Shown here is a 63-nucleotide RNA from Camelus dromedarius, a member of the family "Ma3 gene ribosomal frameshift signal". The base pairs follow the family's consensus structure, which is taken from published work. By type it is a frameshift element. Rfam links the family to the GO term translational frameshifting.
RNA sequence: GGGAAAUGAGGACAGGGCUGUGGAGAUGAGCCCUCCCAAGUCCUCCUCGGGUCAAUAGGCUCA
Numbered sequence: 001g002g003g004a005a006a007u008g009a010g011g012a013c014a015g016g017g018c019u020g021u022g023g024a025g026a027u028g029a030g031c032c033c034u035c036c037c038a039a040g041u042c043c044u045c046c047u048c049g050g051g052u053c054a055a056u057a058g059g060c061u062c063a
Stems, first nucleotide, its partner, number of pairs: 014044006022036003028062005